Shown here is a 76-nucleotide RNA from Cyclopterus lumpus, a member of the family "mir-34 microRNA precursor family".
The literature on the family includes a 2003 paper in Science by Lim et al., "Vertebrate microRNA genes".
Its Rfam clan is "mir-34 clan".
NCBI's taxonomy places the organism under Eukaryota, Eumetazoa, Osteoglossocephalai, Eupercaria, Cyclopterus.
Rfam describes the family as follows. Human mir-34a was discovered computationally and later experimentally verified.
The base pairs follow the family's consensus structure, which was predicted with RNAalifold.
Rfam 15.1 lists 2,256 matches to the family in 820 species.
RNA sequence: GUUUCUCUGGCAGUGUCUUAGCUGGUUGUUGUGAGAGUGAGAACGAAGCAAUCAGCAAGUUUACUGCCGCAGAAAU
Numbered sequence: 001g002u003u004u005c006u007c008u009g010g011c012a013g014u015g016u017c018u019u020a021g022c023u024g025g026u027u028g029u030u031g032u033g034a035g036a037g038u039g040a041g042a043a044c045g046a047a048g049c050a051a052u053c054a055g056c057a058a059g060u061u062u063a064c065u066g067c068c069g070c071a072g073a074a075a076u
Base pairs, nucleotide, nucleotide: 002075003074004073005072006071009068010067012065013064014063015062018059019058021056023054024053025052026051027050028049029048030047